This 82-nucleotide RNA sequence from Klugiella xanthotipulae belongs to the Rfam family "ZMP/ZTP riboswitch aptamer (pfl RNA motif)". Pairs were carried over by alignment from the consensus structure, which is taken from published work.
RNA sequence: GACUGCUGUCGUAACUGGCGUACAGAUGGUCACCAUCGGGAAGCGACGCAAUGCAGAUCGGCCGCUCGCCUGGGCCGUGUAA
Numbered sequence: 001g002a003c004u005g006c007u008g009u010c011g012u013a014a015c016u017g018g019c020g021u022a023c024a025g026a027u028g029g030u031c032a033c034c035a036u037c038g039g040g041a042a043g044c045g046a047c048g049c050a051a052u053g054c055a056g057a058u059c060g061g062c063c064g065c066u067c068g069c070c071u072g073g074g075c076c077g078u079g080u081a082a
Base pairs, nucleotide, nucleotide: 004050005049007048008047009046010045011044012043015040016039017070018069019068020067026036027035028034029033059077060076061075062074063073